[Rfam]
RNA sequence: UGAUUAUCCAGAAAGACGGAGGGACAGGCCCAAUGAAGUCUUGACAACCUUUUCAGCAAUGAAAGUGGUGCCAAUUCCUGAGAGAUAACUA
Numbered sequence: 001u002g003a004u005u006a007u008c009c010a011g012a013a014a015g016a017c018g019g020a021g022g023g024a025c026a027g028g029c030c031c032a033a034u035g036a037a038g039u040c041u042u043g044a045c046a047a048c049c050u051u052u053u054c055a056g057c058a059a060u061g062a063a064a065g066u067g068g069u070g071c072c073a074a075u076u077c078c079u080g081a082g083a084g085a086u087a088a089c090u091a
Stems, first nucleotide, its partner, number of pairs: 001091002004088005013042005021031003025080004043072001045070002048068002050064004076083001